Shown here is a 65-nucleotide RNA from Thalassospira xiamenensis, a member of the family "DUF3800-VIII RNA". By type it is a small RNA. Rfam's curators write: Bacteroidetes, Cyanobacteria, Firmicutes, Planctomycetes (1 example), Proteobacteria, Tenericutes (1 example). The organism belongs to Thalassospira xiamenensis, within Bacteria.
RNA sequence: AGAGCCCUGCUUUCGGCGAACCCUUUAGUUCCACUAGAGGAAUUAUUAGUUGAUCGUGGGGCUCA
Numbered sequence: 001a002g003a004g005c006c007c008u009g010c011u012u013u014c015g016g017c018g019a020a021c022c023c024u025u026u027a028g029u030u031c032c033a034c035u036a037g038a039g040g041a042a043u044u045a046u047u048a049g050u051u052g053a054u055c056g057u058g059g060g061g062c063u064c065a
Stems, first nucleotide, its partner, number of pairs: 002064009013053001015051003022040008

Annotation: The family's consensus secondary structure is taken from published work.